[Rfam]
RNA: Bacterial RNase P class A
Organism: Ramlibacter sp. Leaf400
RNA sequence: GAAGCACGCCAGACCGCCGCUGGUGCGAUCACCGAAAGGUGGCACUGGAGGAAGGUCCGGACUGCACAGGGCAGCGUAGCAGGCAACACCUGUCCACCGCGAGGUGAGGAUCAGAGCAACAGAGACGAGUCGGUGGGUUUCCGAAAGGGGGCUUGCCGGGUGAAACGGGCAAUCUCUACGCGCAGCAAUACCAAAUAGGCCGGCAUCGAUGUGGCUCCGCGGAGCCGGCGGGUAGGUAGCACCGAGCCGGUGGGGCGACCCCCGGCCCAGAGGAAUGGCGGUCACGGCGCGGGCAACCGCGCCGCACAGAAUCCGGCCUAUCGGCGCGCUUCACAC
Numbered sequence: 001g002a003a004g005c006a007c008g009c010c011a012g013a014c015c016g017c018c019g020c021u022g023g024u025g026c027g028a029u030c031a032c033c034g035a036a037a038g039g040u041g042g043c044a045c046u047g048g049a050g051g052a053a054g055g056u057c058c059g060g061a062c063u064g065c066a067c068a069g070g071g072c073a074g075c076g077u078a079g080c081a082g083g084c085a086a087c088a089c090c091u092g093u094c095c096a097c098c099g100c101g102a103g104g105u106g107a108g109g110a111u112c113a114g115a116g117c118a119a120c121a122g123a124g125a126c127g128a129g130u131c132g133g134u135g136g137g138u139u140u141c142c143g144a145a146a147g148g149g150g151g152c153u154u155g156c157c158g159g160g161u162g163a164a165a166c167g168g169g170c171a172a173u174c175u176c177u178a179c180g181c182g183c184a185g186c187a188a189u190a191c192c193a194a195a196u197a198g199g200c201c202g203g204c205a206u207c208g209a210u211g212u213g214g215c216u217c218c219g220c221g222g223a224g225c226c227g228g229c230g231g232g233u234a235g236g237u238a239g240c241a242c243c244g245a246g247c248c249g250g251u252g253g254g255g256c257g258a259c260c261c262c263c264g265g266c267c268c269a270g271a272g273g274a275a276u277g278g279c280g281g282u283c284a285c286g287g288c289g290c291g292g293g294c295a296a297c298c299g300c301g302c303c304g305c306a307c308a309g310a311a312u313c314c315g316g317c318c319u320a321u322c323g324g325c326g327c328g329c330u331u332c333a334c335a336c
Base pairs, nucleotide, nucleotide: 001332002331003330004329005328007326008325009324010323011321012283013282014281015280016279017278018277020048021047022046023045024044025043026042028040029039030038053319054318055317057316058315059314060313061312062185063184064183065182069217070216071215072214074181075180076179077178078177079093080092081091082090083089094108095106096105097104098103109176110175114174115173116170117169131159133156134155135154136152138150139149140148141147189238190237191236192235199229200228201227202226203225204224210221211220212219213218246266247265248264249263250262252261253260254259
Dot-bracket structure: (((((.((((((((((((.(((((((.(((.......))).)))))))....[[[.[[[[[((((...[[[[.((((((((((.....)))))(((((....)))).)((...((((.............(.((((.((((.....)))).).)))..).........))..)))))))))))))...((((......((((((.....((((]]]]))))..)))))).....)))).......(((((.(((....))))))))..........)))))))............................]]]]]]]].).)))).)))))....